Description
The family of this 104-nucleotide RNA from Carya illinoinensis is "Small nucleolar RNA Z107/R87". Rfam links the family to the GO terms RNA processing and nucleolus. The match comes from Rfam's covariance-model search (85 bits). The base pairs follow the family's consensus structure, which was predicted with RNAfold. Rfam classes the family as a C/D-box small nucleolar RNA.
[Rfam]
RNA sequence: AAUCGCAGUGAUGACUUCAAUAAAUUCAAGCUCAACAGACCGGAAUGCAGGCUUCUCUCUCUGUAGAAGUUUGCGUGUCGAACACCCCGCUGAACUGAGCGAUC
Numbered sequence: 001a002a003u004c005g006c007a008g009u010g011a012u013g014a015c016u017u018c019a020a021u022a023a024a025u026u027c028a029a030g031c032u033c034a035a036c037a038g039a040c041c042g043g044a045a046u047g048c049a050g051g052c053u054u055c056u057c058u059c060u061c062u063g064u065a066g067a068a069g070u071u072u073g074c075g076u077g078u079c080g081a082a083c084a085c086c087c088c089g090c091u092g093a094a095c096u097g098a099g100c101g102a103u104c
Base pairs, nucleotide, nucleotide: 002103003102004101005100006099